[Rfam]
RNA sequence: GGAGGUAGGUCCUCCGGGGUCGGCUUGCAGGAGCAGGCCUCAAACCACCGCAAGCUGCGUCGGUGAAUGAGCCGGGGUGGUGAGCGUUGCGGAAACGGCGUGCCGGUGAGCGCGUCAGGU
Number, nucleotide and partner (000 for none) at each position: 001g015002g014003a013004g012005g011006u000007a000008g000009g000010u000011c005012c004013u003014c002015c001016g041017g040018g039019g038020u037021c036022g000023g034024c033025u032026u031027g000028c000029a000030g000031g026032a025033g024034c023035a000036g021037g020038c019039c018040u017041c016042a000043a000044a000045c000046c119047a000048c092049c091050g090051c089052a088053a087054g081055c080056u000057g078058c077059g000060u000061c074062g073063g072064u071065g000066a000067a000068u000069g000070a000071g064072c063073c062074g061075g000076g000077g058078u057079g000080g055081u054082g000083a000084g000085c000086g000087u053088u052089g051090c050091g049092g048093a000094a000095a000096c000097g116098g115099c114100g113101u112102g111103c000104c000105g000106g000107u000108g000109a000110g000111c102112g101113c100114g099115u098116c097117a000118g000119g046120u000
RNA: Group II catalytic intron D1-D4-2
Organism: Actinocrinis puniceicyclus